The family of this 229-nucleotide sequence from Clostridium thermobutyricum is "T-box leader".
About the family: Uncharged tRNA acts as the effector for transcription antitermination of genes in the T-box leader family. T-boxes are found upstream of many aminoacyl-tRNA synthetase genes and some amino acid biosynthetic genes usually in Gram-positive bacteria. The anticodon of a specific tRNA base pairs to a specifier sequence within the T-box motif, and the NCCA acceptor tail of the tRNA base pairs to a conserved bulge in the T-box antiterminator hairpin.
A reference for the family is Gerdeman et al. (2003), "Solution structure of the Bacillus subtilis T-box antiterminator RNA: seven nucleotide bulge characterized by stacking and flexibility", J Mol Biol.
Lineage of the source: Bacteria > Bacillota > Eubacteriales > Clostridiaceae > Clostridium.
Rfam classes the family as a cis-regulatory leader.

RNA sequence: AUAAAGACAAUGAUAAGAGCAAGUAGAAGUAUCUAAGCUUAACAGAAAGUUGCCGGUUGAUGAGAGGCGCAAGGACAUUUACUUUGAAUACGUCUUGGAGUCAUGCAUUGAACGUUAAUUUUUAAUUAGUAGGUGUUAUCGGAUAAGCUUCGUUAAAGCUAUUAAGGUUACAUAUAAAUUUUAUGUAAUAAAUUAAGGUGGUACCGCGUGAUAUAAUCUCGUCCUUUGU
Number, nucleotide and partner (000 for none) at each position: 001a000002u000003a000004a000005a000006g000007a101008c100009a000010a000011u000012g000013a000014u000015a096016a095017g094018a093019g000020c000021a000022a000023g000024u000025a000026g085027a084028a083029g082030u081031a080032u000033c000034u000035a000036a000037g000038c074039u073040u072041a000042a000043c000044a000045g000046a000047a000048a000049g000050u000051u069052g068053c067054c066055g000056g000057u000058u000059g000060a000061u000062g000063a000064g000065a000066g054067g053068c052069g051070c000071a000072a040073g039074g038075a000076c000077a000078u000079u000080u031081a030082c029083u028084u027085u026086g000087a000088a000089u000090a000091c000092g000093u018094c017095u016096u015097g000098g000099a000100g008101u007102c000103a000104u138105g136106c135107a134108u133109u132110g000111a000112a000113c000114g000115u000116u000117a000118a000119u000120u000121u000122u000123u000124a000125a000126u000127u000128a000129g000130u000131a000132g109133g108134u107135g106136u105137u000138a104139u000140c152141g151142g150143a000144u000145a000146a000147g000148c000149u000150u142151c141152g140153u000154u000155a000156a000157a000158g000159c000160u000161a000162u000163u000164a000165a000166g000167g000168u000169u187170a186171c185172a184173u183174a182175u000176a000177a000178a000179u000180u000181u000182u174183a173184u172185g171186u170187a169188a000189u000190a000191a000192a000193u000194u000195a226196a225197g224198g223199u000200g000201g000202u000203a000204c000205c000206g222207c221208g220209u000210g218211a000212u000213a000214u000215a000216a000217u000218c210219u000220c208221g207222u206223c198224c197225u196226u195227u000228g000229u000